[Rfam]
This 74-nucleotide RNA sequence belongs to the Rfam family "HDV ribozyme from F. prausnitzii". It is one of the family's seed sequences. For this family Rfam cites "Widespread occurrence of self-cleaving ribozymes" (Webb et al., Science, 2009). The family's consensus secondary structure is taken from published work. Rfam links the family to the GO term catalytic activity.
RNA sequence: GCUGCUCGUAAUAAUCACACACCUCUUCGUGGUGAGCAGCAGGCAACGGUCUAAGGAUCGGCGAAGAUGUGAAG
Numbered sequence: 001g002c003u004g005c006u007c008g009u010a011a012u013a014a015u016c017a018c019a020c021a022c023c024u025c026u027u028c029g030u031g032g033u034g035a036g037c038a039g040c041a042g043g044c045a046a047c048g049g050u051c052u053a054a055g056g057a058u059c060g061g062c063g064a065a066g067a068u069g070u071g072a073a074g
Stems, first nucleotide, its partner, number of pairs: 001040007021033003047060005